[Rfam]
Heliobacter pylori small RNA HPnc0580: a 103-nucleotide sequence from Lamprotornis superbus.

RNA sequence: UUGUUUUGGUAUCCACUGCAGGGAUACUGGGAAAGUGGCAUUUUUAGAGGUGCUGAAUGACACCUGAAAAAAAGUAGCUCAGGUUGCAUCCAGCUGAAAUUCA
Dot-bracket structure: ...............((.(((.....)))))...(((.(((...(((.....))).))).)))................(.((......)).)..........

It scores 37 bits against the family's covariance model. The family's consensus secondary structure was predicted with RNAalifold. NCBI's taxonomy places the organism under Eukaryota, Metazoa, Eumetazoa, Telluraves, Lamprotornis.